The record is a 221-nucleotide sequence from Ferruginivarius sediminum, which matches "Group II catalytic intron D1-D4-6" in Rfam. On this family, see Bonen and Vogel, Trends Genet 2001: "The ins and outs of group II introns". The pairing is the family consensus, mapped onto this sequence. The family has 174 seed sequences and 1,617 matches in Rfam 15.1. The organism belongs to Ferruginivarius, within Bacteria.

RNA sequence: CAAGUCCCUUGCGGUGAAGGAGUAGCGAUCCACACUGGCCCCGAGUCAUGCGCGGGCGGCCGCGAGGUCGUGCGUGAAGCGUUGACAGGGGUGCGCAUAGGCCAGCCAUUGAGCGGCGUUAGACUUCCCAUUCGGAGUGCCGAUGCUCUCCAGUCAGCAGAAGGCAACACGGUCUGGUGCGCUAUGCGAGUGCCGGCCGGCUCCGCGUCGUCGUUAGACCC
Numbered sequence: 001c002a003a004g005u006c007c008c009u010u011g012c013g014g015u016g017a018a019g020g021a022g023u024a025g026c027g028a029u030c031c032a033c034a035c036u037g038g039c040c041c042c043g044a045g046u047c048a049u050g051c052g053c054g055g056g057c058g059g060c061c062g063c064g065a066g067g068u069c070g071u072g073c074g075u076g077a078a079g080c081g082u083u084g085a086c087a088g089g090g091g092u093g094c095g096c097a098u099a100g101g102c103c104a105g106c107c108a109u110u111g112a113g114c115g116g117c118g119u120u121a122g123a124c125u126u127c128c129c130a131u132u133c134g135g136a137g138u139g140c141c142g143a144u145g146c147u148c149u150c151c152a153g154u155c156a157g158c159a160g161a162a163g164g165c166a167a168c169a170c171g172g173u174c175u176g177g178u179g180c181g182c183u184a185u186g187c188g189a190g191u192g193c194c195g196g197c198c199g200g201c202u203c204c205g206c207g208u209c210g211u212c213g214u215u216a217g218a219c220c221c
Base pairs, nucleotide, nucleotide: 012037013036014035015034016033019031020030021029023189025187026186039091040090041089042088045086046085047084048083049081050080051076052075053074054073056071057070058069059068060067061066111212113211114210115209116208117207118206133205134204135203136202137201138200139165140164141163144159145158146157147156170199171198172197173196174195176194177193178192179191180190

Rfam describes the family as follows. Group II introns are found in rRNA, tRNA and mRNA of organelles in fungi, plants and protists, and also in mRNA in bacteria.